[Rfam]
Shown here is a 51-nucleotide sequence from Pteropus vampyrus, a member of the family "MAT2A 3'UTR stem loop C". Taxonomically the source falls in Pteropus (Eukaryota, Gnathostomata, Eutheria, Boreoeutheria). The literature on the family includes a 2011 paper in Genome Res by Parker et al., "New families of human regulatory RNA structures identified by comparative analysis of vertebrate genomes". Rfam classes the family as a cis-regulatory element. Rfam 15.1 lists 275 matches to the family in 162 species. The base pairs follow the family's consensus structure, which is taken from published work.
RNA sequence: GCUUCUGAACAGCUGGUGUAGCUACAGAGAAACCAGCUUCGUUCAGACAGC
Numbered sequence: 001g002c003u004u005c006u007g008a009a010c011a012g013c014u015g016g017u018g019u020a021g022c023u024a025c026a027g028a029g030a031a032a033c034c035a036g037c038u039u040c041g042u043u044c045a046g047a048c049a050g051c
Base pairs, nucleotide, nucleotide: 001051002050003049004047005046006045007044008043011038012037013036014035015034016033017032018025019024